[Rfam]
RNA sequence: CUACUCCCUCUGUGAACUAAUAUAAGAGUGUUUAGAUUACUAUAUUAGUGAUCUAAAUGCUCUUAUAUUAGUUUACAGAGGGAGUAU
Numbered sequence: 001c002u003a004c005u006c007c008c009u010c011u012g013u014g015a016a017c018u019a020a021u022a023u024a025a026g027a028g029u030g031u032u033u034a035g036a037u038u039a040c041u042a043u044a045u046u047a048g049u050g051a052u053c054u055a056a057a058u059g060c061u062c063u064u065a066u067a068u069u070a071g072u073u074u075a076c077a078g079a080g081g082g083a084g085u086a087u
Stems, first nucleotide, its partner, number of pairs: 003085003007081005013075005019069023
RNA: MIR1120/MIR1122 microRNA precursor family
Organism: Triticum urartu